RNA: mir-607 microRNA precursor family
Organism: Pongo abelii
RNA sequence: CUAAAGUCACACAGGUUAUAGAUCUGGAUUCGAACCCAGGCAGUCUGGCUCCCUGGGUUCCAAUCCAGAUCUAUAACCUGUGUGACUUUGG
Number, nucleotide and partner (000 for none) at each position: 001c091002u090003a089004a088005a087006g086007u085008c084009a083010c082011a081012c080013a079014g078015g077016u076017u075018a074019u073020a072021g071022a070023u069024c068025u067026g066027g065028a064029u063030u062031c000032g060033a059034a058035c057036c056037c055038a054039g053040g052041c000042a050043g049044u000045c000046u000047g000048g000049c043050u042051c000052c040053c039054u038055g037056g036057g035058u034059u033060c032061c000062a030063a029064u028065c027066c026067a025068g024069a023070u022071c021072u020073a019074u018075a017076a016077c015078c014079u013080g012081u011082g010083u009084g008085a007086c006087u005088u004089u003090g002091g001